[Rfam]
RNA sequence: GGAGCUCCUGCAGGGGCGAGAUGGGAACACAUGCCGUUGCCGGGCGCUGUCGCCGCCGCCGCGCAUGUGUUCUCAGGUCGCCCCCGCCGGGCCUUC
Numbered sequence: 001g002g003a004g005c006u007c008c009u010g011c012a013g014g015g016g017c018g019a020g021a022u023g024g025g026a027a028c029a030c031a032u033g034c035c036g037u038u039g040c041c042g043g044g045c046g047c048u049g050u051c052g053c054c055g056c057c058g059c060c061g062c063g064c065a066u067g068u069g070u071u072c073u074c075a076g077g078u079c080g081c082c083c084c085c086g087c088c089g090g091g092c093c094u095u096c
Stems, first nucleotide, its partner, number of pairs: 007090002011086001013084002016081004023074012
Dot-bracket structure: ......((..(.((.((((...((((((((((((............................))))))))))))...)))).)).)..))......

Annotation
MIR398 microRNA precursor family: a 96-nucleotide RNA sequence from Setaria italica. Taxonomically the source falls in Setaria (Eukaryota, Streptophyta, Euphyllophyta, Panicodae).